[Rfam]
RNA sequence: CAUUAUCCGGCGAUCUCUCUCCUCCUCCCUCGAGAGAUCCUUGGACCCGCAACCUGCACCUCCUCCUCCCAUUGCAGGUUGCCACAAGACGGCGGCGUCACCUCCUCCCGGCGCCGCCGUCUCGU
Numbered sequence: 001c002a003u004u005a006u007c008c009g010g011c012g013a014u015c016u017c018u019c020u021c022c023u024c025c026u027c028c029c030u031c032g033a034g035a036g037a038u039c040c041u042u043g044g045a046c047c048c049g050c051a052a053c054c055u056g057c058a059c060c061u062c063c064u065c066c067u068c069c070c071a072u073u074g075c076a077g078g079u080u081g082c083c084a085c086a087a088g089a090c091g092g093c094g095g096c097g098u099c100a101c102c103u104c105c106u107c108c109c110g111g112c113g114c115c116g117c118c119g120u121c122u123c124g125u
Base pairs, nucleotide, nucleotide: 007044008043009042012039013038014037015036016035017034049082050081051080052079053078054077055076056075057074058073089120090119091118092117093116094115095114096113097112098111099110

A member of the RNA family "Alphaproteobacterial ar14" from Ketogulonicigenium robustum, 125 nucleotides long. The match comes from Rfam's covariance-model search (73 bits). A reference for the family is del Val et al. (2012), "A survey of sRNA families in alpha-proteobacteria", RNA Biol. The pairing is the family consensus, mapped onto this sequence. Its family is annotated with biological process involved in symbiotic interaction in the Gene Ontology. Smr14C2 was renamed NfeR1 (Nodule Formation Efficiency RNA) highly expressed in salt stress and during the symbiotic interaction on legume roots. Lineage of the source: Bacteria > Pseudomonadota > Alphaproteobacteria > Rhodobacterales > Ketogulonicigenium.